Annotation
The family of this 121-nucleotide RNA sequence from Gossypium australe is "Small nucleolar RNA snoR111". A reference for the family is Marker et al. (2002), "Experimental RNomics: identification of 140 candidates for small non-messenger RNAs in the plant Arabidopsis thaliana", Curr Biol. Pairs were carried over by alignment from the consensus structure, which was predicted with WAR.

[Rfam]
RNA sequence: GGAAGUGAGGAGACAUUUUAUUAUUGUGUCUCUUUAUUGAGGUAUGGUGAAAUCGAAGGCUGAGAUAUCGUUUCAGUCAUCAGUUUUCUCAAUUGAUGAAUUGAUUGUUGCUUGUCCACAU
Dot-bracket structure: .....((((((((((...........)))))))))).....................((.((((..((((......((((((.((.....)).))))))..)))).....)))).))....

Annotation
Taxonomically the source falls in Gossypium (Eukaryota, Streptophyta, Embryophyta, malvids). It scores 68 bits against the family's covariance model.